[Rfam]
RNA sequence: UUCGGGAAAACGCCAAAGACGUCCAGUGGACGUCACGGGGGACCCAAGGCGCGAAUUCCCGCGCACCGGGGCGAAUUCCGCGGAGCUCUUCGGAGCGAUGCGGAUAGAGCAACUCCAGGCUCGAGCCCGUCAGCUAACCUCGUCGGCGUGUGGAGUCACCGU
Number, nucleotide and partner (000 for none) at each position: 001u000002u000003c000004g000005g000006g000007a000008a000009a000010a000011c148012g147013c146014c145015a000016a000017a000018g034019a033020c032021g031022u030023c000024c000025a000026g000027u000028g000029g000030a022031c021032g020033u019034c018035a143036c142037g141038g140039g139040g138041g000042a000043c000044c000045c068046a000047a000048g000049g000050c000051g000052c000053g000054a000055a000056u000057u000058c000059c000060c000061g000062c000063g000064c000065a000066c000067c000068g045069g128070g127071g126072c000073g000074a000075a000076u000077u104078c103079c102080g101081c100082g099083g000084a000085g000086c000087u000088c000089u000090u000091c000092g000093g000094a000095g000096c000097g000098a000099u082100g081101c080102g079103g078104a077105u000106a000107g122108a121109g120110c119111a000112a000113c000114u000115c000116c000117a000118g000119g110120c109121u108122c107123g000124a000125g000126c071127c070128c069129g000130u000131c000132a000133g000134c000135u000136a000137a000138c040139c039140u038141c037142g036143u035144c000145g014146g013147c012148g011149u000150g000151u000152g000153g000154a000155g000156u000157c000158a000159c000160c000161g000162u000
A member of the RNA family "c-di-AMP riboswitch aptamer (ydaO/yuaA leader)" from Luteitalea sp. TBR-22, 162 nucleotides long. Its family is annotated with regulation of gene expression and cyclic-di-AMP binding in the Gene Ontology. The organism belongs to Luteitalea, within Bacteria.